mir-140 microRNA precursor family: a 72-nucleotide sequence. A reference for the family is Xu et al. (2006), "Identification of microRNAs from different tissues of chicken embryo and adult chicken", FEBS Lett. Rfam 15.1 lists 648 matches to the family in 615 species.

RNA sequence: CGUGUCCUGCCAGUGGUUUUACCCUAUGGUAGGUUACGUCAUGCUGUUCUACCACAGGGUAGAACCACGGAC
Dot-bracket structure: .........((.(((((((((((((.(((((((..(((......)))))))))).)))))))))))))))..